[Rfam]
RNA sequence: CUUCACGGACCCCAGCCACAGCGGCCGGUCGGCGGGGCGGUCCUGCCCGUACGUCGCCAGCAGCGCCCGCGCCUC
Number, nucleotide and partner (000 for none) at each position: 001c000002u000003u000004c000005a000006c000007g000008g000009a000010c000011c000012c000013c000014a000015g025016c024017c023018a000019c000020a000021g000022c000023g017024g016025c015026c000027g000028g000029u000030c000031g000032g070033c069034g000035g000036g000037g000038c065039g064040g000041u000042c000043c060044u059045g058046c000047c056048c000049g054050u000051a000052c000053g000054u049055c000056g047057c000058c045059a044060g043061c000062a000063g000064c039065g038066c000067c000068c000069g033070c032071g000072c000073c000074u000075c000
ASpks TB sRNA: a 75-nucleotide RNA from Streptomyces cyaneogriseus. The literature on the family includes a 2009 paper in Mol Microbiol by Arnvig and Young, "Identification of small RNAs in Mycobacterium tuberculosis". It is annotated as an antisense RNA. Pairs were carried over by alignment from the consensus structure, which is taken from published work. The organism belongs to Streptomyces cyaneogriseus, within Bacteria.